[Rfam]
RNA sequence: AUGCGAUGAGUCGAUUCGUGAUUAUUAUAAUCACGUCGAAGCAGUGGAUAUCUAGGGCAUAGCCCGUCAAGGAUUGAUGAGAUAUUGGUAAGUUGUGUGAACCUUCUUACCACGGAUGAAAGUUUGCCACAUAAGACCUAAUCUUUUGGUUAGGUCUUUUU
Numbered sequence: 001a002u003g004c005g006a007u008g009a010g011u012c013g014a015u016u017c018g019u020g021a022u023u024a025u026u027a028u029a030a031u032c033a034c035g036u037c038g039a040a041g042c043a044g045u046g047g048a049u050a051u052c053u054a055g056g057g058c059a060u061a062g063c064c065c066g067u068c069a070a071g072g073a074u075u076g077a078u079g080a081g082a083u084a085u086u087g088g089u090a091a092g093u094u095g096u097g098u099g100a101a102c103c104u105u106c107u108u109a110c111c112a113c114g115g116a117u118g119a120a121a122g123u124u125u126g127c128c129a130c131a132u133a134a135g136a137c138c139u140a141a142u143c144u145u146u147u148g149g150u151u152a153g154g155u156c157u158u159u160u161u
Stems, first nucleotide, its partner, number of pairs: 012038004018034006044130004048085004067080003086112007113126004135156009
Dot-bracket structure: ...........((((..((((((.....)))))))))).....((((((((...............(((........))).))))(((((((.............)))))))((((......))))))))....(((((((((....))))))))).....
The record is a 161-nucleotide RNA from Floricoccus tropicus, which matches "MarS sRNA" in Rfam. The organism belongs to Floricoccus, within Bacteria. Its family is annotated with positive regulation of translation, ncRNA-mediated and mRNA 5'-UTR binding in the Gene Ontology. Rfam describes the family as follows. Interacts with the 5'UTR of the mga transcript (the multiple virulence gene regulator gene) and was renamed MarS for mag-activating regulatory sRNA. In MarS deletion strains expression of mga and several Mga-activated genes is reduced. This down-regulation of virulence factors leads to increased susceptibility of the deletion strain to phagocytosis, reduced adherence to human keratinocytes. However, the lack of MarS increased bacterial dissemination and tolerance towards oxidative stress. It scores 88 bits against the family's covariance model.